The family of this 76-nucleotide sequence from Cephus cinctus is "mir-278 microRNA precursor family". The literature on the family includes a 2007 paper in Genome Res by Stark et al., "Systematic discovery and characterization of fly microRNAs using 12 Drosophila genomes". The base pairs follow the family's consensus structure, which was predicted with RNAalifold.

RNA sequence: GAUGCGUCCGGGCGAGAUCUUCACCGGCCGUUCUCCCUACUAUUCCAGGUCGGUGGGACUUUCGUCCGUUUGCAGU
Numbered sequence: 001g002a003u004g005c006g007u008c009c010g011g012g013c014g015a016g017a018u019c020u021u022c023a024c025c026g027g028c029c030g031u032u033c034u035c036c037c038u039a040c041u042a043u044u045c046c047a048g049g050u051c052g053g054u055g056g057g058a059c060u061u062u063c064g065u066c067c068g069u070u071u072g073c074a075g076u
Base pairs, nucleotide, nucleotide: 003074004073005072006071009068010067011066012065013064014063015062016060018058019057020056022055023054025052026051027050028049029048